[Rfam]
RNA sequence: AUCUAUCUUCGGGGCAGGGUGAAAUUCCCGACCGGCGGUAAGGAAAGAUAUUUUUUCCAAAGCCCGCGAGCCGUCCUUGUGAUGGCAGGAUCUGGUGAGAUUCCAGAGCCGACAGUAAAGUCUGGAUGGGAGAAGAUGGAG
Numbered sequence: 001a002u003c004u005a006u007c008u009u010c011g012g013g014g015c016a017g018g019g020u021g022a023a024a025u026u027c028c029c030g031a032c033c034g035g036c037g038g039u040a041a042g043g044a045a046a047g048a049u050a051u052u053u054u055u056u057c058c059a060a061a062g063c064c065c066g067c068g069a070g071c072c073g074u075c076c077u078u079g080u081g082a083u084g085g086c087a088g089g090a091u092c093u094g095g096u097g098a099g100a101u102u103c104c105a106g107a108g109c110c111g112a113c114a115g116u117a118a119a120g121u122c123u124g125g126a127u128g129g130g131a132g133a134a135g136a137u138g139g140a141g
Stems, first nucleotide, its partner, number of pairs: 003139008017029003031121002033111002035067004062109002072085001091107005113124003

FMN riboswitch aptamer (RFN element): a 141-nucleotide RNA from Metabacillus indicus. Pairs were carried over by alignment from the consensus structure, which is taken from published work. The organism belongs to Metabacillus, within Bacteria. Rfam's curators write: The RFN element is a highly conserved domain that is found frequently in the 5'-untranslated regions of prokaryotic mRNAs that encode for flavin mononucleotide (FMN) biosynthesis and transport proteins.